[Rfam]
Record summary
A member of the RNA family "Small nucleolar RNA SNORD71" from Echinops telfairi, 86 nucleotides long. snoRNA HBII-239 belongs to the family of C/D snoRNAs.It is the human orthologue of the mouse MBII-239 described and is predicted to guide 2'O-ribose methylation of 5.8S rRNA on residue U14. Rfam links the family to the GO terms nucleolus and RNA processing. For this family Rfam cites "RNomics: an experimental approach that identifies 201 candidates for novel, small, non-messenger RNAs in mouse" (Huttenhofer et al., EMBO J, 2001).
RNA sequence: UGUGUGCUGGAGGAUGAAAACAAGGAGUGAUCCAUCGGCUGAGUGUCCUUUCACAAUGUCGAAACUCGAAUUGCUGACAGCACACA
Numbered sequence: 001u002g003u004g005u006g007c008u009g010g011a012g013g014a015u016g017a018a019a020a021c022a023a024g025g026a027g028u029g030a031u032c033c034a035u036c037g038g039c040u041g042a043g044u045g046u047c048c049u050u051u052c053a054c055a056a057u058g059u060c061g062a063a064a065c066u067c068g069a070a071u072u073g074c075u076g077a078c079a080g081c082a083c084a085c086a
Stems, first nucleotide, its partner, number of pairs: 002085007009075002012033004017028001035062005043054003
Dot-bracket structure: .(((((((((.((((.(..........).)))).(((((...(((......)))...)))))...........))...))))))).